[Rfam]
Record summary: The record is a 119-nucleotide sequence from Cardiobacterium hominis, which matches "Y RNA-like" in Rfam. Rfam classes the family as a small RNA. Rfam describes the family as follows. In Deinococcus radiodurans Rsr is tethered via Y RNA to the exoribonuclease PNPase and channels single-stranded RNA into the PNPase cavity. Rsr and Y RNA enhance degradation of structured RNAs by PNPase. This role could be conserved, as Rsr and ncRNAs called YrlA and YrlB (Y RNA like) also associate with PNPase in an evolutionary distant bacterium Salmonella Typhimurium. On this family, see Chen et al., Cell 2013: "An RNA degradation machine sculpted by Ro autoantigen and noncoding RNA". Lineage of the source: Bacteria > Pseudomonadati > Gammaproteobacteria > Cardiobacterium > Cardiobacterium hominis.

RNA sequence: GCACCAAAUGCGCAGGGAAUUACAGGGUCGCGGGUUCGAGUCCCGCCCUGCCGGUUCUCCGGCAGGUAACUCAGCCAGGUAGAGUAUGUGAGCAUUUCCUGCACCCUCGUUGGUGUGAU
Numbered sequence: 001g002c003a004c005c006a007a008a009u010g011c012g013c014a015g016g017g018a019a020u021u022a023c024a025g026g027g028u029c030g031c032g033g034g035u036u037c038g039a040g041u042c043c044c045g046c047c048c049u050g051c052c053g054g055u056u057c058u059c060c061g062g063c064a065g066g067u068a069a070c071u072c073a074g075c076c077a078g079g080u081a082g083a084g085u086a087u088g089u090g091a092g093c094a095u096u097u098c099c100u101g102c103a104c105c106c107u108c109g110u111u112g113g114u115g116u117g118a119u
Base pairs, nucleotide, nucleotide: 002115003114004113005112006111007110013101014100015099016098017097018096019095023088024087030046031045032044033043034042037079047066048065049064050063051062052061053060054059069085070084071083072082